[Rfam]
RNA sequence: AAUACUCAAGGGAAUGAUGUUCUCCCUUGGGAAACCUAAACCGCUUAUAUAAGCUGAUGACUUCUGUGAUUUU
Numbered sequence: 001a002a003u004a005c006u007c008a009a010g011g012g013a014a015u016g017a018u019g020u021u022c023u024c025c026c027u028u029g030g031g032a033a034a035c036c037u038a039a040a041c042c043g044c045u046u047a048u049a050u051a052a053g054c055u056g057a058u059g060a061c062u063u064c065u066g067u068g069a070u071u072u073u
Stems, first nucleotide, its partner, number of pairs: 010026004016064002019061003043054004

Background:
Rfam assigns this 73-nucleotide sequence from Copranaerobaculum intestinale to the family "Fluoride riboswitch aptamer (crcB RNA motif)". The organism belongs to Copranaerobaculum, within Bacteria. The match comes from Rfam's covariance-model search (49 bits).